Shown here is an 84-nucleotide RNA from Leucobacter viscericola, a member of the family "ZMP/ZTP riboswitch aptamer (pfl RNA motif)". The base pairs follow the family's consensus structure, which is taken from published work. Gene Ontology terms of the family: one-carbon metabolic process and regulation of purine nucleotide biosynthetic process.
RNA sequence: GAUUCUCGUCGUGACUGGCGUGCAGAUGGGACACCAUCGGGGAACGACACUCUCAGUUUUAGGCCGCUCGCCUGGGUCGCAAAG
Numbered sequence: 001g002a003u004u005c006u007c008g009u010c011g012u013g014a015c016u017g018g019c020g021u022g023c024a025g026a027u028g029g030g031a032c033a034c035c036a037u038c039g040g041g042g043a044a045c046g047a048c049a050c051u052c053u054c055a056g057u058u059u060u061a062g063g064c065c066g067c068u069c070g071c072c073u074g075g076g077u078c079g080c081a082a083a084g
Stems, first nucleotide, its partner, number of pairs: 008048005015041002017072004026037004062078004